Description: This 127-nucleotide RNA from Chelydra serpentina belongs to the Rfam family "Small nucleolar RNA SNORA72". From the family's description: U72 is a member of the H/ACA class of snoRNAs. The snoRNA gene is located in intron 4 of the ribosomal L30 protein gene in human, mouse and chicken.
RNA sequence: CUGAAAAUGGUCGCUGUCCUGAUAUUUCAAUGAUCAGGCUAGUCACUUGCUAUAUUAAAAUUCUGCAGUGUGUCCCCAGGACUUGCUUGUUUCUCUAGUUCUGUGUUUUUAAUGGUUAGUGAUAUGU
Numbered sequence: 001c002u003g004a005a006a007a008u009g010g011u012c013g014c015u016g017u018c019c020u021g022a023u024a025u026u027u028c029a030a031u032g033a034u035c036a037g038g039c040u041a042g043u044c045a046c047u048u049g050c051u052a053u054a055u056u057a058a059a060a061u062u063c064u065g066c067a068g069u070g071u072g073u074c075c076c077c078a079g080g081a082c083u084u085g086c087u088u089g090u091u092u093c094u095c096u097a098g099u100u101c102u103g104u105g106u107u108u109u110u111a112a113u114g115g116u117u118a119g120u121g122a123u124a125u126g127u
Base pairs, nucleotide, nucleotide: 003050005048014042015041016040018038019037020036021035022034023033060120061119062118065116066115077103078102079101080100081099082098083097085095